[Rfam]
RNA sequence: GCCGCCAUAGCUCAGUUGGUUAGAGCGCUGGUCUAACCAACGGGUCUAGCUGGUCAUGAGUUCAAAUCUCUUUGGUGGCU
Numbered sequence: 001g002c003c004g005c006c007a008u009a010g011c012u013c014a015g016u017u018g019g020u021u022a023g024a025g026c027g028c029u030g031g032u033c034u035a036a037c038c039a040a041c042g043g044g045u046c047u048a049g050c051u052g053g054u055c056a057u058g059a060g061u062u063c064a065a066a067u068c069u070c071u072u073u074g075g076u077g078g079c080u
Stems, first nucleotide, its partner, number of pairs: 001079007010026004029039004056072001058070003
tRNA: an 80-nucleotide sequence from Branchiostoma lanceolatum. Its Rfam clan is "tRNA clan". The source organism's lineage runs through Eukaryota, Opisthokonta, Eumetazoa, Amphioxiformes and Branchiostoma.